Shown here is an 84-nucleotide RNA from Nothocercus julius, a member of the family "mir-130 microRNA precursor family".
[Rfam]
RNA sequence: UGCCUGUCCAAUGCCCUUUUUAUGUUGUACUACUAGUGAUCAUGCACAAAAAGCAGUGCAAUGUUAAAAGGGCAUUGGCCAGCA
Number, nucleotide and partner (000 for none) at each position: 001u084002g083003c082004c000005u000006g080007u000008c078009c077010a076011a075012u000013g073014c072015c071016c070017u069018u068019u067020u066021u000022a000023u063024g062025u061026u060027g059028u058029a057030c056031u055032a000033c000034u000035a000036g000037u000038g000039a000040u000041c000042a000043u000044g000045c000046a000047c000048a000049a000050a000051a000052a000053g000054c000055a031056g030057u029058g028059c027060a026061a025062u024063g023064u000065u000066a020067a019068a018069a017070g016071g015072g014073c013074a000075u011076u010077g009078g008079c000080c006081a000082g003083c002084a001

Background
Gene Ontology terms of the family: miRNA-mediated post-transcriptional gene silencing and RISC complex. The literature on the family includes a 2002 paper in Curr Biol by Lagos-Quintana et al., "Identification of tissue-specific microRNAs from mouse".